Overview: Shown here is a 135-nucleotide sequence from Chrysochloris asiatica, a member of the family "Small Cajal body specific RNA 3". On this family, see Darzacq et al., EMBO J 2002: "Cajal body-specific small nuclear RNAs: a novel class of 2'-O-methylation and pseudouridylation guide RNAs". The family's RNA type in Rfam is small Cajal body RNA. Taxonomically the source falls in Chrysochloris (Eukaryota, Sarcopterygii, Dipnotetrapodomorpha, Tetrapoda). The match comes from Rfam's covariance-model search (121 bits). Its family is annotated with Cajal body, nucleolus and RNA processing in the Gene Ontology.

[Rfam]
RNA sequence: AAUGGAAGCUGAACAAAUCAAGUGGACAAAUGACAAAACCUUUGUCUACAGAAUGCAGCUAUCCUACAGAAAUGUGGAGGUCUCUGUCUGGCUUAAAACAGCGGAUUAAGUCUUGAUCGUUCCCCUCCAUACAUC
Numbered sequence: 001a002a003u004g005g006a007a008g009c010u011g012a013a014c015a016a017a018u019c020a021a022g023u024g025g026a027c028a029a030a031u032g033a034c035a036a037a038a039c040c041u042u043u044g045u046c047u048a049c050a051g052a053a054u055g056c057a058g059c060u061a062u063c064c065u066a067c068a069g070a071a072a073u074g075u076g077g078a079g080g081u082c083u084c085u086g087u088c089u090g091g092c093u094u095a096a097a098a099c100a101g102c103g104g105a106u107u108a109a110g111u112c113u114u115g116a117u118c119g120u121u122c123c124c125c126u127c128c129a130u131a132c133a134u135c
Base pairs, nucleotide, nucleotide: 004064005063006062008059009058010057011056022049023048024047025046026045027044032042033041076128077127078126079125080124084119086117087116088115090112091111092110093109094108095107096106